[Rfam]
RNA: c-di-GMP-I riboswitch aptamer
Organism: Leptolyngbya sp. FACHB-261
Nucleotides: 092
Base pairs, nucleotide, nucleotide: 012038013037017033018032019031021030022029023028042085043084044083046081047080048079050075051074056070057069
Number, partner (000 for none) and nucleotide at each position: 001000c002000c003000c004000c005000g006000a007000a008000a009000a010000u011000g012038g013037c014000a015000a016000c017033c018032u019031g020000c021030u022029c023028c024000g025000a026000a027000a028023g029022g030021a031019c032018a033017g034000g035000g036000c037013g038012c039000a040000a041000a042085u043084c044083a045000g046081u047080a048079g049000a050075c051074c052000u053000a054000a055000g056070c057069c058000a059000g060000c061000g062000u063000u064000a065000c066000a067000a068000g069057g070056g071000u072000a073000u074051g075050g076000a077000u078000g079048c080047u081046a082000c083044u084043g085042a086000c087000a088000c089000c090000g091000a092000a